[Rfam]
RNA sequence: AUCGUUCAACUCAAAUGAGUCGGAAGUAGGCACAUGCCGAAGGAACGCACC
Numbered sequence: 001a002u003c004g005u006u007c008a009a010c011u012c013a014a015a016u017g018a019g020u021c022g023g024a025a026g027u028a029g030g031c032a033c034a035u036g037c038c039g040a041a042g043g044a045a046c047g048c049a050c051c
Stems, first nucleotide, its partner, number of pairs: 003047005009020004023048001029038003
A member of the RNA family "Glutamine riboswitch aptamer (glnA leader)", 51 nucleotides long. It is one of the family's seed sequences. For this family Rfam cites "Bacterial aptamers that selectively bind glutamine" (Ames and Breaker, RNA Biol, 2011).